[Rfam]
RNA sequence: AUUAGUUGUUGAUGAGGGGACCAAUUCAAUUCCUGACCGGCGGUGAUAGUCCGCAAGCUCUGAAAUGGGUUGACUCGGUGUGAUUCCGAGACCGACAGUAUAGUCUGGAUGGGAAAAGACACGG
Numbered sequence: 001a002u003u004a005g006u007u008g009u010u011g012a013u014g015a016g017g018g019g020a021c022c023a024a025u026u027c028a029a030u031u032c033c034u035g036a037c038c039g040g041c042g043g044u045g046a047u048a049g050u051c052c053g054c055a056a057g058c059u060c061u062g063a064a065a066u067g068g069g070u071u072g073a074c075u076c077g078g079u080g081u082g083a084u085u086c087c088g089a090g091a092c093c094g095a096c097a098g099u100a101u102a103g104u105c106u107g108g109a110u111g112g113g114a115a116a117a118g119a120c121a122c123g124g
Base pairs, nucleotide, nucleotide: 005120006119007118009116010115017034018033019032036104037103038094039093040054041053042052043051049092050091057070058069059068074090075089076088077087078086096107097106098105
Rfam assigns this 124-nucleotide RNA sequence from Veillonella criceti to the family "FMN riboswitch aptamer (RFN element)".
Rfam describes the family as follows. The RFN element is a highly conserved domain that is found frequently in the 5'-untranslated regions of prokaryotic mRNAs that encode for flavin mononucleotide (FMN) biosynthesis and transport proteins. This element is a metabolite-dependent riboswitch that directly binds FMN in the absence of proteins. In Bacillus subtilis, the riboswitch most likely controls gene expression by causing premature transcription termination within the 5' untranslated region of the ribDEAHT operon and precluding access to the ribosome-binding site of ypaA mRNA.The FMN riboswitch structure, reported in present an FMN-bound six-stem junction, adopts a butterfly-like scaffold, stapled together by opposingly directed but nearly identically folded peripheral domains.